[Rfam]
RNA sequence: GUGUGCUUAUGAUGGUCUGUGUCUAAACUCUGUGGAGGGACCAGACUUGAUGCAUUACACUC
Numbered sequence: 001g002u003g004u005g006c007u008u009a010u011g012a013u014g015g016u017c018u019g020u021g022u023c024u025a026a027a028c029u030c031u032g033u034g035g036a037g038g039g040a041c042c043a044g045a046c047u048u049g050a051u052g053c054a055u056u057a058c059a060c061u062c
Stems, first nucleotide, its partner, number of pairs: 001062001003060003014047006021041003028037003
The record is a 62-nucleotide sequence from Coregonus sp. 'balchen', which matches "Selenocysteine insertion sequence 1" in Rfam. Taxonomically the source falls in Coregonus (Eukaryota, Vertebrata, Euteleostomi, Salmoniformes). Gene Ontology term of the family: selenocysteine incorporation. The family's RNA type in Rfam is cis-regulatory element. The family's consensus secondary structure is taken from published work. A search with the family's covariance model found it, with a score of 39 bits.